RNA sequence: GUUGUUAUAUGAUGUUUUAAUUGAAAAGCAUUUCUUGCAGCGGUUAAAACUGAUCUUAUUAUAAC
Numbered sequence: 001g002u003u004g005u006u007a008u009a010u011g012a013u014g015u016u017u018u019a020a021u022u023g024a025a026a027a028g029c030a031u032u033u034c035u036u037g038c039a040g041c042g043g044u045u046a047a048a049a050c051u052g053a054u055c056u057u058a059u060u061a062u063a064a065c
Base pairs, nucleotide, nucleotide: 001065002064003063004062005061014050015049016048017047018046019045020044021043022042023041028038029037030036
RNA: Selenocysteine insertion sequence 1